[Rfam]
Shown here is a 304-nucleotide RNA from Asparagus officinalis, a member of the family "Plant signal recognition particle RNA". Pairs were carried over by alignment from the consensus structure, which is taken from published work. The literature on the family includes a 2000 paper in Science by Batey et al., "Crystal structure of the ribonucleoprotein core of the signal recognition particle". NCBI's taxonomy places the organism under Eukaryota, Streptophyta, Spermatophyta, Liliopsida, Asparagus. Gene Ontology terms of the family: SRP-dependent cotranslational protein targeting to membrane, signal sequence recognition and signal recognition particle, endoplasmic reticulum targeting.
RNA sequence: GCCGAGCUCAGUAGCGUGAGCUUGUAACCGAGCGGGGCAUUAAGGUGGUGUGGACGUUGGGUCUUGUUACUGGGCCUGGGUGUGCAGUACUCUCUGCUGGCCCGCCCGUUCCUAGUUGGGCAGUGAUGCGUGUGGGUCUAGCGAAGGCUGGGCUCACUCGUUUCUUGAAGAGGAGGGCACCGCGUCAGGCUGGUUUCACAGAGCAGCGAAAACCUCCCGCUCUCAACGGUGGAAGGAUCACGGGCUGCUGUGCUGUGCAUCCGCAAUAGGCCCAGUUACAGUCCACCAACGAACCACCACUUUU
Numbered sequence: 001g002c003c004g005a006g007c008u009c010a011g012u013a014g015c016g017u018g019a020g021c022u023u024g025u026a027a028c029c030g031a032g033c034g035g036g037g038c039a040u041u042a043a044g045g046u047g048g049u050g051u052g053g054a055c056g057u058u059g060g061g062u063c064u065u066g067u068u069a070c071u072g073g074g075c076c077u078g079g080g081u082g083u084g085c086a087g088u089a090c091u092c093u094c095u096g097c098u099g100g101c102c103c104g105c106c107c108g109u110u111c112c113u114a115g116u117u118g119g120g121c122a123g124u125g126a127u128g129c130g131u132g133u134g135g136g137u138c139u140a141g142c143g144a145a146g147g148c149u150g151g152g153c154u155c156a157c158u159c160g161u162u163u164c165u166u167g168a169a170g171a172g173g174a175g176g177g178c179a180c181c182g183c184g185u186c187a188g189g190c191u192g193g194u195u196u197c198a199c200a201g202a203g204c205a206g207c208g209a210a211a212a213c214c215u216c217c218c219g220c221u222c223u224c225a226a227c228g229g230u231g232g233a234a235g236g237a238u239c240a241c242g243g244g245c246u247g248c249u250g251u252g253c254u255g256u257g258c259a260u261c262c263g264c265a266a267u268a269g270g271c272c273c274a275g276u277u278a279c280a281g282u283c284c285a286c287c288a289a290c291g292a293a294c295c296a297c298c299a300c301u302u303u304u
Stems, first nucleotide, its partner, number of pairs: 001038003004023007028035002042303009052294001055291002057288001059286001060284002063281002067278001069276008078262008087253003091250001098247007106236002109234004115227006122221003125164002128161003132157011165170001172217005183208003190201003